[Rfam]
The record is a 454-nucleotide RNA from Clohesyomyces aquaticus, which matches "RNase MRP" in Rfam. RNase MRP is an enzymatically active ribonucleoprotein with two distinct roles in eukaryotes. A search with the family's covariance model found it, with a score of 110 bits.
RNA sequence: UCCUCGCUCGAAGAAUCGCAUUCAAAGCUUACACACAGAGUGUCUCCCUCACCGCGACAGACAUCUCAUAUCUCCUUGCUUUGGGAGAAAGUCCCCGGACAUCGGUUCUUCGUGUACCGCACUCGCUUCACAGCGCUGCCACAGAAGCGCAGCCUCGCUCACGCACAUCAGAACACCGCUUUCCGCCGUGCACUCACCGUCUGCACUCCCUCGGCGCGUUCCCAAGAUCGCAGGUGACGGGCUGGCGUCAGGACGAGGAUAUGAGUCCGUCGGUACCCCGAGCUUGUUGCUUCGCGGGCCUGCAAUGAGUGGAGGAGGUGACGCCUGGUUGGCCGGCGGUAGUCAGACGAGGGUCCUUUCGUCAAGUUGGAUAGUUAUGCGAUUGCCUGCUGUCCUGUCCAGUAACAUGGACUGGCCGGAAGGUAACUCGAUGGGGCUUAUUCUCGAGGCGAGG
Numbered sequence: 001u002c003c004u005c006g007c008u009c010g011a012a013g014a015a016u017c018g019c020a021u022u023c024a025a026a027g028c029u030u031a032c033a034c035a036c037a038g039a040g041u042g043u044c045u046c047c048c049u050c051a052c053c054g055c056g057a058c059a060g061a062c063a064u065c066u067c068a069u070a071u072c073u074c075c076u077u078g079c080u081u082u083g084g085g086a087g088a089a090a091g092u093c094c095c096c097g098g099a100c101a102u103c104g105g106u107u108c109u110u111c112g113u114g115u116a117c118c119g120c121a122c123u124c125g126c127u128u129c130a131c132a133g134c135g136c137u138g139c140c141a142c143a144g145a146a147g148c149g150c151a152g153c154c155u156c157g158c159u160c161a162c163g164c165a166c167a168u169c170a171g172a173a174c175a176c177c178g179c180u181u182u183c184c185g186c187c188g189u190g191c192a193c194u195c196a197c198c199g200u201c202u203g204c205a206c207u208c209c210c211u212c213g214g215c216g217c218g219u220u221c222c223c224a225a226g227a228u229c230g231c232a233g234g235u236g237a238c239g240g241g242c243u244g245g246c247g248u249c250a251g252g253a254c255g256a257g258g259a260u261a262u263g264a265g266u267c268c269g270u271c272g273g274u275a276c277c278c279c280g281a282g283c284u285u286g287u288u289g290c291u292u293c294g295c296g297g298g299c300c301u302g303c304a305a306u307g308a309g310u311g312g313a314g315g316a317g318g319u320g321a322c323g324c325c326u327g328g329u330u331g332g333c334c335g336g337c338g339g340u341a342g343u344c345a346g347a348c349g350a351g352g353g354u355c356c357u358u359u360c361g362u363c364a365a366g367u368u369g370g371a372u373a374g375u376u377a378u379g380c381g382a383u384u385g386c387c388u389g390c391u392g393u394c395c396u397g398u399c400c401a402g403u404a405a406c407a408u409g410g411a412c413u414g415g416c417c418g419g420a421a422g423g424u425a426a427c428u429c430g431a432u433g434g435g436g437c438u439u440a441u442u443c444u445c446g447a448g449g450c451g452a453g454g
Stems, first nucleotide, its partner, number of pairs: 002454006008447004014384006022085001023083006038067003041063004089439003093436004134149003203356001205354001209352005215346001218343001219341001221339002327334002386423003390419002